[Rfam]
About this RNA: Shown here is a 360-nucleotide part of an RNA from Candidatus Carsonella ruddii, a member of the family "Bacterial large subunit ribosomal RNA". The sequence is in the family's curated seed alignment. The base pairs follow the family's consensus structure, which is taken from published work.

RNA sequence: AAUAAGAAAUGUGAAAAUCAUUUCCGCUGAAAAACUAAGGUUUUCUAUUCAACGAUCAUCGUAAUAGAGUUAGUCGUGACCUAAAAUGAGGUUGAAAAACAUAGUUGAUGGGAAAAAAAUUAAUAUUUUUUUACCAUUAAUAAUAAUGAAGAAAUAUAGUAAUUUGUUAUUUUAAUCCUAAUAAAAGAUAAAUUAGGUUUAAUAUUAAAAUAAUUAACAAUCAAGUAAAUCUAAUUGUUUAUAUUAAAUUAUAUAAAUAAAAUUAAAAAAUUAUAUUACCAAGAAAAAUUUCUAAAUUAUAUUAUUAAUGCACGUACCGCAAACCGACACAGGUAGUUAAGUAGAAUAUACUAAAGCGUU
Numbered sequence: 001a002a003u004a005a006g007a008a009a010u011g012u013g014a015a016a017a018u019c020a021u022u023u024c025c026g027c028u029g030a031a032a033a034a035c036u037a038a039g040g041u042u043u044u045c046u047a048u049u050c051a052a053c054g055a056u057c058a059u060c061g062u063a064a065u066a067g068a069g070u071u072a073g074u075c076g077u078g079a080c081c082u083a084a085a086a087u088g089a090g091g092u093u094g095a096a097a098a099a100c101a102u103a104g105u106u107g108a109u110g111g112g113a114a115a116a117a118a119a120u121u122a123a124u125a126u127u128u129u130u131u132u133a134c135c136a137u138u139a140a141u142a143a144u145a146a147u148g149a150a151g152a153a154a155u156a157u158a159g160u161a162a163u164u165u166g167u168u169a170u171u172u173u174a175a176u177c178c179u180a181a182u183a184a185a186a187g188a189u190a191a192a193u194u195a196g197g198u199u200u201a202a203u204a205u206u207a208a209a210a211u212a213a214u215u216a217a218c219a220a221u222c223a224a225g226u227a228a229a230u231c232u233a234a235u236u237g238u239u240u241a242u243a244u245u246a247a248a249u250u251a252u253a254u255a256a257a258u259a260a261a262a263u264u265a266a267a268a269a270a271u272u273a274u275a276u277u278a279c280c281a282a283g284a285a286a287a288a289u290u291u292c293u294a295a296a297u298u299a300u301a302u303u304a305u306u307a308a309u310g311c312a313c314g315u316a317c318c319g320c321a322a323a324c325c326g327a328c329a330c331a332g333g334u335a336g337u338u339a340a341g342u343a344g345a346a347u348a349u350a351c352u353a354a355a356g357c358g359u360u
Stems, first nucleotide, its partner, number of pairs: 006024006025358004033338004039318002044068006053061002075314004080111002085106003089102001091100003115132005135310011146297002150293006159279004166271002172266005177197006198257002202252003209245003216239006224232002324333002340352004